[Rfam]
RNA sequence: UUUCCCAUUUACUUGCUGCUAUAGUCUUUCCAGUGACAUGAGCAGUUAUACGCAUGGGAUAAAAUAACGUCAGACCACUGUGAAUGGAGGUGGAAUAACCUUUCAAUCUCUUUUGCAUGCAUGGUCUAGACACUG
Dot-bracket structure: ..((((((......((((((.(..((........)).)..)))))).......))))))..........(.((((((.((((....(((((.(((......))).)))))...))))....)))))).)......
A member of the RNA family "Small nucleolar RNA SNORA20" from Phyllostomus discolor, 135 nucleotides long. NCBI's taxonomy places the organism under Eukaryota, Deuterostomia, Boreoeutheria, Laurasiatheria, Phyllostomus. The family's RNA type in Rfam is H/ACA-box small nucleolar RNA. Rfam links the family to the GO terms nucleolus and RNA processing. The family's consensus secondary structure was predicted with ILM. From the family's description: ACA20 is a member of the H/ACA class of snoRNA that guide the sites of modification of uridines to pseudouridines.